The record is a 173-nucleotide sequence from Caballeronia telluris, which matches "Burkholderia RNA 14" in Rfam.
The source organism's lineage runs through Bacteria, Pseudomonadati, Pseudomonadota, Betaproteobacteria and Caballeronia.
Its family is annotated with protein binding in the Gene Ontology.
Pairs were carried over by alignment from the consensus structure, which was predicted with RNAfold.
By type it is a small RNA.
Co-purified with Hfq, expression confirmed by Northern blot.
A reference for the family is Ramos et al. (2013), "Experimental identification of small non-coding regulatory RNAs in the opportunistic human pathogen Burkholderia cenocepacia J2315", Genomics.
RNA sequence: GUGGGCGUCGUCACCGUCCAGCCGACCAGCGUGCCCGUCGUGGACGAACUGCCGGGCCGCACGAGCGCGUUCCUGAAUGCACAGGUGCGCGCGCGGGUCGAUGGCAUCGUGCUGCGCCGCGAGUUCACCGAAGGCGCGGACGUGAAGGCCGGCCAGCGCCUCUACAAGAUCGA
Number, nucleotide and partner (000 for none) at each position: 001g000002u000003g000004g053005g052006c051007g050008u047009c046010g045011u043012c042013a041014c040015c000016g038017u000018c037019c000020a000021g034022c033023c031024g030025a000026c000027c000028a000029g000030c024031g023032u000033g022034c021035c000036c000037g018038u016039c000040g014041u013042g012043g011044a000045c010046g009047a008048a000049c000050u007051g006052c005053c004054g000055g150056g149057c148058c147059g143060c142061a000062c000063g000064a000065g137066c136067g135068c134069g000070u000071u000072c133073c000074u131075g000076a000077a000078u093079g092080c091081a000082c089083a000084g000085g000086u000087g000088c000089g082090c000091g080092c079093g078094c121095g120096g000097g118098u000099c116100g115101a000102u114103g113104g112105c111106a110107u000108c000109g000110u106111g105112c104113u103114g102115c100116g099117c000118c097119g000120c095121g094122a000123g000124u000125u000126c000127a000128c000129c000130g000131a074132a000133g072134g068135c067136g066137c065138g000139g000140a000141c000142g060143u059144g000145a000146a000147g058148g057149c056150c055151g000152g000153c000154c000155a000156g000157c172158g171159c000160c168161u167162c000163u000164a000165c000166a000167a161168g160169a000170u000171c158172g157173a000